[Rfam]
RNA sequence: AUGGUCAGGGUAAUGGCUCCUGUGUGGCUGUGCCCAUUUAUUGGGUGCAGCUGGGUACCUGGCAGCUCAUCCUUGACCUAGAUUAAUGUUUGGGCUCCUUCCUGCAGAGAAGGCCCUUGCAGUUGAAGGAGUGAGCAUUCAAGGAGCAAUUUGAUGGUCAUAUAAAUACUGCACAUACAG
Numbered sequence: 001a002u003g004g005u006c007a008g009g010g011u012a013a014u015g016g017c018u019c020c021u022g023u024g025u026g027g028c029u030g031u032g033c034c035c036a037u038u039u040a041u042u043g044g045g046u047g048c049a050g051c052u053g054g055g056u057a058c059c060u061g062g063c064a065g066c067u068c069a070u071c072c073u074u075g076a077c078c079u080a081g082a083u084u085a086a087u088g089u090u091u092g093g094g095c096u097c098c099u100u101c102c103u104g105c106a107g108a109g110a111a112g113g114c115c116c117u118u119g120c121a122g123u124u125g126a127a128g129g130a131g132u133g134a135g136c137a138u139u140c141a142a143g144g145a146g147c148a149a150u151u152u153g154a155u156g157g158u159c160a161u162a163u164a165a166a167u168a169c170u171g172c173a174c175a176u177a178c179a180g
Base pairs, nucleotide, nucleotide: 003078004077005076006075008073009072010071015067016066017065018064019062020061022059024058025057026052027051028050029049030048032046033045034044090107091106092102093101094100118173119172120171121170122169123168132160133159134158136156137155138154139153142151143150
The record is a 180-nucleotide sequence from Geotrypetes seraphini, which matches "Small Cajal body specific RNA 16" in Rfam. Pairs were carried over by alignment from the consensus structure, which was predicted with RNAfold. Lineage of the source: Eukaryota > Eumetazoa > Vertebrata > Amphibia > Geotrypetes. Rfam describes the family as follows. scaRNAs are a specific class of small nuclear RNAs which localise to the Cajal bodies and guide the modification of RNA polymerase II transcribed spliceosomal RNAs U1, U2, U4, U5 and U12. ACA47 belongs to the H/ACA box class of guide RNAs as it has the predicted hairpin-hinge-hairpin-tail structure, the conserved H/ACA-box motifs and is found associated with GAR1. ACA47 is predicted to guide the pseudouridylation of residue U5 of the U1 spliceosomal snRNA. Gene Ontology terms of the family: nucleolus and RNA processing.